[Rfam]
Rfam assigns this 215-nucleotide sequence from Nakamurella alba to the family "Actinobacteria sRNA Ms_IGR-5". It is annotated as a small RNA. A reference for the family is Li et al. (2013), "Identification of small RNAs in Mycobacterium smegmatis using heterologous Hfq", RNA.

RNA sequence: ACACGGGAGAGGAGGUGGUCCGACGUUGAUGACGUACAGGACUCGUGAGGUGGCUGGCCGCUAGGCCGAGCACACCACGCUGUGGUUGACCGGAUCCGCCGAGCGGCGGACCGACGGCCCGGCACAACAGGACAGUCACCCGACCCUCGGGCCGCCGAACCCAGUCCAGUCGGCCCGCUCCCACCGGAGCGGACAAGGCCCGGGGGUUGUCCUGU
Dot-bracket structure: .............(.((((.................................)))).).(((.(((((..............................................))))).))).................((((((((((((((((((...........)))))......................)))))))))))))......

Taxonomically the source falls in Nakamurella (Bacteria, Actinomycetota, Actinomycetes, Nakamurellales).